[Rfam]
RNA sequence: GGCAGGUGAUGUCUGUUCUCACGAUGGUCUUCAGAAGCCUGCCACAGGCACUGCUGAGAAAGCUGAUUGGCAACACUGAUGCCAGAAA
Numbered sequence: 001g002g003c004a005g006g007u008g009a010u011g012u013c014u015g016u017u018c019u020c021a022c023g024a025u026g027g028u029c030u031u032c033a034g035a036a037g038c039c040u041g042c043c044a045c046a047g048g049c050a051c052u053g054c055u056g057a058g059a060a061a062g063c064u065g066a067u068u069g070g071c072a073a074c075a076c077u078g079a080u081g082c083c084a085g086a087a088a
Base pairs, nucleotide, nucleotide: 001083002082003081004080
The record is an 88-nucleotide sequence from Cavia porcellus, which matches "Small nucleolar RNA SNORD35" in Rfam. By type it is a C/D-box small nucleolar RNA. From the family's description: U35 is a C/D box snoRNA located in intron 6 of ribosomal protein L13A and intron 3 of ribosomal protein S11 in humans and at homologous positions in mouse and chicken ribosomal protein genes. U35 guides the methylation of 2'-O-ribose sites in 28S rRNA. The source organism's lineage runs through Eukaryota, Chordata, Euteleostomi, Amniota and Cavia.